[Rfam]
Shown here is a 122-nucleotide RNA sequence from Aurantimonas marianensis, a member of the family "Rhizobiales sRNA Atu_C8".
NCBI's taxonomy places the organism under Bacteria, Pseudomonadota, Alphaproteobacteria, Aurantimonadaceae, Aurantimonas.

RNA sequence: GAUGAACAUGAACGGCAUUCUCGUAGUACGAAGGCGCACACGCGCGGCGGUCUGACGGCCGCCCGGCGACAGCCACGUGUGCGCAUCCCAAGGGCCCCAGCGGCCCUUUUUUAUUGCGCCGA
Numbered sequence: 001g002a003u004g005a006a007c008a009u010g011a012a013c014g015g016c017a018u019u020c021u022c023g024u025a026g027u028a029c030g031a032a033g034g035c036g037c038a039c040a041c042g043c044g045c046g047g048c049g050g051u052c053u054g055a056c057g058g059c060c061g062c063c064c065g066g067c068g069a070c071a072g073c074c075a076c077g078u079g080u081g082c083g084c085a086u087c088c089c090a091a092g093g094g095c096c097c098c099a100g101c102g103g104c105c106c107u108u109u110u111u112u113a114u115u116g117c118g119c120c121g122a
Stems, first nucleotide, its partner, number of pairs: 009026001029118002032115001034084009046063005066073002090107001092106005